RNA sequence: UUCCCCACAGUUCUCCGGCCCUCGUUUCUCGCAAGAGAUGUCUAUUGCAGGCUGCUUGUCUUUUUUGGUUACCCUCCCAUAUGUCGCUCUCGAGCCUGUAACAGGACCUCGUGAUUGCCGCAGCUGGAUCAUGGUGGGUAGCGCGUUCUGUAUAGGACGUACCAGGCGGACAGGUAAACGAGGCUCGGAACUUAACCCUAAGAAGAUAU
Dot-bracket structure: ........(((...((((......................................................................................................................................................................)))).))).................

This 209-nucleotide part of an RNA from Fusarium irregulare belongs to the Rfam family "Ascomycota telomerase RNA". NCBI's taxonomy places the organism under Eukaryota, Pezizomycotina, sordariomyceta, Hypocreales, Fusarium incarnatum-equiseti species complex. Its Rfam clan is "Telomerase clan". The literature on the family includes a 2013 paper in Nucleic Acids Res by Qi et al., "The common ancestral core of vertebrate and fungal telomerase RNAs". It is annotated as a non-coding RNA gene.